[Rfam]
RNA: SAM-I/IV (S-adenosyl methionine) riboswitch aptamer
Organism: Neisseria animalis
RNA sequence: CCGCUGCAUUAAGAGUUGGGAAUUCCAUGCCAACCUGCUUUUUCACAGUGAAAGGUAAGGUGGACGGCCGUCUGGCCGAUGUGGCUCGCCAGAGCAAUCCAAACCCGCUUAA
Dot-bracket structure: .....(((((....(.((((...))))).((..((((((..[...........))).))).))..............))))).((((....))))...........].....